[Rfam]
RNA: mir-17 microRNA precursor family
RNA sequence: CAAUGUAUUGUCAAAGUGCUUACAGUGCAGGUAGUAUUAUGGAAUAUCUACUGCAGUGGAGGCACUUCUAGCAAUACACU
Numbered sequence: 001c002a003a004u005g006u007a008u009u010g011u012c013a014a015a016g017u018g019c020u021u022a023c024a025g026u027g028c029a030g031g032u033a034g035u036a037u038u039a040u041g042g043a044a045u046a047u048c049u050a051c052u053g054c055a056g057u058g059g060a061g062g063c064a065c066u067u068c069u070a071g072c073a074a075u076a077c078a079c080u
Stems, first nucleotide, its partner, number of pairs: 005077004010072002014067008023058002026055003030052005